Notes:
mraW RNA: a 119-nucleotide RNA from Geotrypetes seraphini.
RNA sequence: UUCCUCCCCCUGUGUUCGAUCCCUCCCCGGUGCUCGUCCCGGUCCUGGUUCCUGGUUCCGCUCACCUCCAGGACCGGGACGAGCACCGGGGAGGGAUCGAACACAGGGGGAGGAAGUCU
Numbered sequence: 001u002u003c004c005u006c007c008c009c010c011u012g013u014g015u016u017c018g019a020u021c022c023c024u025c026c027c028c029g030g031u032g033c034u035c036g037u038c039c040c041g042g043u044c045c046u047g048g049u050u051c052c053u054g055g056u057u058c059c060g061c062u063c064a065c066c067u068c069c070a071g072g073a074c075c076g077g078g079a080c081g082a083g084c085a086c087c088g089g090g091g092a093g094g095g096a097u098c099g100a101a102c103a104c105a106g107g108g109g110g111a112g113g114a115a116g117u118c119u
Stems, first nucleotide, its partner, number of pairs: 010106007018098002021095028
Dot-bracket structure: .........(((((((.((.((((((((((((((((((((((((((((...................)))))))))))))))))))))))))))).)).))))))).............
It scores 60 bits against the family's covariance model.